[Rfam]
RNA sequence: UCCGGUCCUCGGUAGCGGUCCGCGGAGCGCUGCGAACGACCAGCAGCUCCGCGGGUCUCGAUCGAAGACCGCC
Dot-bracket structure: ..(((((.(((((...((((((((((((.................))))))))))))...))))).)))))..
Numbered sequence: 001u002c003c004g005g006u007c008c009u010c011g012g013u014a015g016c017g018g019u020c021c022g023c024g025g026a027g028c029g030c031u032g033c034g035a036a037c038g039a040c041c042a043g044c045a046g047c048u049c050c051g052c053g054g055g056u057c058u059c060g061a062u063c064g065a066a067g068a069c070c071g072c073c
Stems, first nucleotide, its partner, number of pairs: 003071005009065005017057012
A member of the RNA family "Actino-pnp RNA" from Cellulomonas aerilata, 73 nucleotides long. The organism belongs to Cellulomonas, within Bacteria. The match comes from Rfam's covariance-model search (51 bits). By type it is a cis-regulatory element.